RNA sequence: UAACUAAAUGAGUGUAACCUUCAUAUAUCCUCGAUAAUAUGGUUCGAAAGUUUCUACCAGGUCACCGGAAAUGAUCUGACUAUGAAGGCAGAAUAUUCUAAG
Numbered sequence: 001u002a003a004c005u006a007a008a009u010g011a012g013u014g015u016a017a018c019c020u021u022c023a024u025a026u027a028u029c030c031u032c033g034a035u036a037a038u039a040u041g042g043u044u045c046g047a048a049a050g051u052u053u054c055u056a057c058c059a060g061g062u063c064a065c066c067g068g069a070a071a072u073g074a075u076c077u078g079a080c081u082a083u084g085a086a087g088g089c090a091g092a093a094u095a096u097u098c099u100a101a102g
Base pairs, nucleotide, nucleotide: 018088019087020086021085022084023083024082025081031047032046033045034044058078059077060076061075062074063073064072

Purine riboswitch aptamer: a 102-nucleotide RNA from Cytobacillus horneckiae. The family's consensus secondary structure is taken from published work. The source organism's lineage runs through Bacteria, Bacillati, Bacillota, Bacillaceae and Cytobacillus.